[Rfam]
The record is a 176-nucleotide sequence from Virgibacillus salexigens, which matches "Lysine riboswitch aptamer" in Rfam.
Nucleotides: 176
Stems, first nucleotide, its partner, number of pairs: 007170005016079003020075005032064003036060004083112004087107008113139011141161006
Number, partner (000 for none) and nucleotide at each position: 001000c002000g003000g004000u005000g006000a007170g008169g009168u010167a011166g012000a013000g014000g015000u016079g017078c018077a019000a020075u021074a022073g023072a024071u025000a026000u027000g028000a029000g030000u031000a032064c033063u034062c035000a036060g037059u038058c039057g040000g041000a042000g043000g044000a045000u046000g047000a048000c049000a050000a051000c052000u053000a054000g055000g056000a057039u058038g059037a060036u061000g062034g063033a064032g065000g066000a067000a068000a069000g070000g071024a072023u073022u074021u075020a076000c077018u078017g079016c080000c081000g082000a083112a084111g085110u086109a087107c088106a089105a090104u091103a092102g093101g094100u095000g096000u097000c098000a099000g100094g101093c102092u103091u104090a105089u106088u107087g108000u109086u110085a111084c112083u113139g114138g115137u116136a117135u118134g119133c120132u121131u122130u123129u124000g125000a126000a127000u128000a129123a130122g131121a132120a133119g134118u135117a136116u137115a138114c139113u140000g141161u142160c143159a144158u145157g146156c147000a148000a149000a150000g151000a152000a153000g154000u155000c156146g157145c158144a159143u160142g161141g162000a163000g164000a165000a166011c167010u168009a169008c170007u171000g172000a173000u174000c175000g176000a